[Rfam]
RNA sequence: UGCUCUUGUCUUGUGAUCAUUCACGUAUAAAUCUUUCGCCUUUUACUAAAGAUUUCCGUGGCUGCAGGACAUAAAUGGAGCUGACCCAAAUUUUUUUCAAACCUUCCUUAUUUCCUCAUGGAG
Numbered sequence: 001u002g003c004u005c006u007u008g009u010c011u012u013g014u015g016a017u018c019a020u021u022c023a024c025g026u027a028u029a030a031a032u033c034u035u036u037c038g039c040c041u042u043u044u045a046c047u048a049a050a051g052a053u054u055u056c057c058g059u060g061g062c063u064g065c066a067g068g069a070c071a072u073a074a075a076u077g078g079a080g081c082u083g084a085c086c087c088a089a090a091u092u093u094u095u096u097u098c099a100a101a102c103c104u105u106c107c108u109u110a111u112u113u114c115c116u117c118a119u120g121g122a123g
Stems, first nucleotide, its partner, number of pairs: 003080004009069007017061003029055008104123004109118001
Background: This 123-nucleotide RNA from Absidia glauca belongs to the Rfam family "U5 spliceosomal RNA". The family's RNA type in Rfam is spliceosomal small nuclear RNA. Pairs were carried over by alignment from the consensus structure, which is taken from published work. The organism belongs to Absidia, within Eukaryota. A reference for the family is Zwieb (1997), "The uRNA database", Nucleic Acids Res. U5 RNA is a component of both types of known spliceosome.